[Rfam]
RNA sequence: GGUAGUAGCAACGAUUCAAGUGAGAACCUUGAAGACUGAAGUGGAGUAGGUUUCCAUGUGAACAUUGAUUGGCCAUGGGUGAGUCGGUCCUAAGAGCGUAGAUGACUCUUUAUGAAAAGCCAUUUUUUUAUAUGAAAAUGGACAAGCUCGAAAGGGAAUUGGGUUUAUAUUCCCAAACCAGGUUGAAAUAUGAAAUGGGGUUGAUUUCAUAUGAUCAAUUUUUUUUCAUUUGAGAAAGGAUUGUACAUAUGAAAAGCAAGCGGCAACGCAAAGGUAUAUGGGAAACGAUUGCACAAGCCCUUGGAAGAGAUAUCUUUUCUUUUUCACAUUAUUUAUUAUGAUCCUGGAAACAGGUUACCUGGCGAUAGGAUGAUAAUGAUGUGAUAGCUAGGAUACUUUAUGCCUAGUCAAUCAUUGAAAAAGGGUAGCUUGUGAAGUUCCUUGAAACUCCGAUAUACCUUGAAUUCCCACCUGUCCGUACCGAUGAACCGCAUCAGGACUCCUAGGUGAGUAGCCUCUAGUUGA
Dot-bracket structure: ..............((((((.......))))))((((.....((((..((...(((((....((.....))..)))))......(((.((...((..(.(((....)))).........((((((..........))))))......))....))...(((((........)))))..((((.................................................................(..((.......(((....)))........((.(((...((((.(((((((.(((((((((.........))))))...(((((.........((((((....(((.....)))....)))))).....)))))......(.(.(((................))).).)....)))...))))))).)))).........))).))...........))..))))).)))..))......((......)).)))).((((.....))))..))))..